[Rfam]
RNA sequence: ACUAAAAACAUAAUCGAGUGCAGCGUUGAUGAAACCACAUCCCAAGCUGUCUGGAAAACCAGAAAUUGUCAAAACGAAGAUCAUCAACGCUGCACUCAAUGAUGCUUUUA
Numbered sequence: 001a002c003u004a005a006a007a008a009c010a011u012a013a014u015c016g017a018g019u020g021c022a023g024c025g026u027u028g029a030u031g032a033a034a035c036c037a038c039a040u041c042c043c044a045a046g047c048u049g050u051c052u053g054g055a056a057a058a059c060c061a062g063a064a065a066u067u068g069u070c071a072a073a074a075c076g077a078a079g080a081u082c083a084u085c086a087a088c089g090c091u092g093c094a095c096u097c098a099a100u101g102a103u104g105c106u107u108u109u110a
Stems, first nucleotide, its partner, number of pairs: 006107002009104003013100002016097013030083003

This 110-nucleotide RNA from Actinidia chinensis belongs to the Rfam family "MIR397 microRNA precursor family". The family's consensus secondary structure was predicted with WAR. Taxonomically the source falls in Actinidia chinensis (Eukaryota, Viridiplantae, Streptophytina, Mesangiospermae). A reference for the family is Mica et al. (2009), "High throughput approaches reveal splicing of primary microRNA transcripts and tissue specific expression of mature microRNAs in Vitis vinifera", BMC Genomics.